Vertebrate telomerase RNA: a 464-nucleotide RNA sequence from Sylvia atricapilla.
The family's RNA type in Rfam is non-coding RNA gene.
The match comes from Rfam's covariance-model search (149 bits).
About the family: Telomerase is a ribonucleoprotein reverse transcriptase that synthesises telomeric DNA. Telomerase RNAs differ greatly in sequence and structure between vertebrates, ciliates and yeasts, but they share a 5' pseudoknot structure close to the template sequence. Vertebrate telomerase RNAs have a 3' H/ACA snoRNA-like domain.
Rfam links the family to the GO terms telomerase catalytic core complex, telomerase activity and telomere maintenance via telomerase.
The literature on the family includes a 2002 paper in Nucleic Acids Res by Antal et al., "Analysis of the structure of human telomerase RNA in vivo".
RNA sequence: UUUGCCGGGGUGGGCAGGCCCUGCGGCCAACUAACCCUAAUGGCGGCUGCGCCCCUCGCACCCACCCGCUGUUUUACUCGCUGACUUUCAGCGGGCAAAGGGCGCGGCCCAGGGGAAGGGGGGGGCGGUGAUGGGGAGGAAAAGAGUUCCGGCCUCAAAAAAAGCCAGCGAUGGGGCUCCACACCCCGGCCCACCCUGGGGUCUCGGUCCCUCCGGGGACCUGUCCAGGGAUGGUCCAGCCCUCGCCCCUCGUGGAGGCCGCGGUCGGUAGGCCCAGCGCCACUGCCGCCGCGAAGAGUUCGUCUCUGUCAGCCUCGGCGGUGGCCGGGACCUGAGGGCCGGCCCGCCUACCCUGGGCAGCGGGGGGACCCCAGCAGAGCAAAACGGGCGCGGCGCCGUGCGGCGCUGAGCAGCCGCGGCUCCCAGAGAUGUGGGAGUGCGCGGUCGGCGCCGCCCCGACAGCC
Numbered sequence: 001u002u003u004g005c006c007g008g009g010g011u012g013g014g015c016a017g018g019c020c021c022u023g024c025g026g027c028c029a030a031c032u033a034a035c036c037c038u039a040a041u042g043g044c045g046g047c048u049g050c051g052c053c054c055c056u057c058g059c060a061c062c063c064a065c066c067c068g069c070u071g072u073u074u075u076a077c078u079c080g081c082u083g084a085c086u087u088u089c090a091g092c093g094g095g096c097a098a099a100g101g102g103c104g105c106g107g108c109c110c111a112g113g114g115g116a117a118g119g120g121g122g123g124g125g126c127g128g129u130g131a132u133g134g135g136g137a138g139g140a141a142a143a144g145a146g147u148u149c150c151g152g153c154c155u156c157a158a159a160a161a162a163a164g165c166c167a168g169c170g171a172u173g174g175g176g177c178u179c180c181a182c183a184c185c186c187c188g189g190c191c192c193a194c195c196c197u198g199g200g201g202u203c204u205c206g207g208u209c210c211c212u213c214c215g216g217g218g219a220c221c222u223g224u225c226c227a228g229g230g231a232u233g234g235u236c237c238a239g240c241c242c243u244c245g246c247c248c249c250u251c252g253u254g255g256a257g258g259c260c261g262c263g264g265u266c267g268g269u270a271g272g273c274c275c276a277g278c279g280c281c282a283c284u285g286c287c288g289c290c291g292c293g294a295a296g297a298g299u300u301c302g303u304c305u306c307u308g309u310c311a312g313c314c315u316c317g318g319c320g321g322u323g324g325c326c327g328g329g330a331c332c333u334g335a336g337g338g339c340c341g342g343c344c345c346g347c348c349u350a351c352c353c354u355g356g357g358c359a360g361c362g363g364g365g366g367g368a369c370c371c372c373a374g375c376a377g378a379g380c381a382a383a384a385c386g387g388g389c390g391c392g393g394c395g396c397c398g399u400g401c402g403g404c405g406c407u408g409a410g411c412a413g414c415c416g417c418g419g420c421u422c423c424c425a426g427a428g429a430u431g432u433g434g435g436a437g438u439g440c441g442c443g444g445u446c447g448g449c450g451c452c453g454c455c456c457c458g459a460c461a462g463c464c
Base pairs, nucleotide, nucleotide: 004190005189006188007187008186009185010184011183012182014180016178017177019175020174021173051103052102053101054100065095066094067093068092069091070090071089080169081168082167083166085164086162087161088160196374197373198372199371200370201369202368229344230343232341233340234339235338236337237336241329242328243327245325246324247323260293261292262291263290264289266288267287268286269285271281272280273279295307296306297305298304386456387455388454389453392452393451394450395449396448397447414444415443416442417441418440421436422435423434424433
Dot-bracket structure: ...(((((((((.(.((.(((.............................((((..........(((((((........[[[[.[[[[)))))))....))))........................................................]]].].]]]]...))).)).).))))))))).....(((((((..........................((.((((((...(((.(((............(((((.((((.(((.....)))...))))))))).((((.....))))...............))).)))......)))))).)).......................)))))))...........((((..((((((................(((((..((((........))))...)))))..))))))))))........